Background:
The record is a 288-nucleotide sequence from Colletotrichum abscissum, which matches "Fungal signal recognition particle RNA" in Rfam. A reference for the family is Wild et al. (2002), "Towards the structure of the mammalian signal recognition particle", Curr Opin Struct Biol. The family's RNA type in Rfam is non-coding RNA gene. Gene Ontology terms of the family: signal recognition particle, plasma membrane targeting, SRP-dependent cotranslational protein targeting to membrane, signal sequence recognition and signal recognition particle, endoplasmic reticulum targeting.
[Rfam]
RNA sequence: CGGCUGUAAUGGUCAAAUGGUUGAAGGCUUUCAUUACUCUUCUUCCGCUACCCCAUCCACAUUGGAACCCCUCAGCGGCGCCCAGUGCGAAUGCUGCGGUGGCCACCCACUCGCACGGGUAACCUGCGAUCGCUGCGUGUGGCCCUAAGCAAUGAAGAUGACACUUGAGGGAGGUUUCACUCUGCAGAGGUAUCUUCACCGUCGCAUGGCGUGCUGGAUUACGAUCGCUGGGGGCUUGGGGUAGUGGAGGAGGAUAGAGAUACCGACUCCAAUUUUUUGACCUUUUUU
Numbered sequence: 001c002g003g004c005u006g007u008a009a010u011g012g013u014c015a016a017a018u019g020g021u022u023g024a025a026g027g028c029u030u031u032c033a034u035u036a037c038u039c040u041u042c043u044u045c046c047g048c049u050a051c052c053c054c055a056u057c058c059a060c061a062u063u064g065g066a067a068c069c070c071c072u073c074a075g076c077g078g079c080g081c082c083c084a085g086u087g088c089g090a091a092u093g094c095u096g097c098g099g100u101g102g103c104c105a106c107c108c109a110c111u112c113g114c115a116c117g118g119g120u121a122a123c124c125u126g127c128g129a130u131c132g133c134u135g136c137g138u139g140u141g142g143c144c145c146u147a148a149g150c151a152a153u154g155a156a157g158a159u160g161a162c163a164c165u166u167g168a169g170g171g172a173g174g175u176u177u178c179a180c181u182c183u184g185c186a187g188a189g190g191u192a193u194c195u196u197c198a199c200c201g202u203c204g205c206a207u208g209g210c211g212u213g214c215u216g217g218a219u220u221a222c223g224a225u226c227g228c229u230g231g232g233g234g235c236u237u238g239g240g241g242u243a244g245u246g247g248a249g250g251a252g253g254a255u256a257g258a259g260a261u262a263c264c265g266a267c268u269c270c271a272a273u274u275u276u277u278u279g280a281c282c283u284u285u286u287u288u
Stems, first nucleotide, its partner, number of pairs: 002014003016285002019282004024277004029272002035259001037257002040252014059063001069234003073230005079223002082217008091207004096202004101144001103142004108137001111129005117124002145149001153198007164189003171182003

Notes: Rfam 15.1 lists 748 matches to the family in 741 species. The organism belongs to Colletotrichum acutatum species complex, within Eukaryota.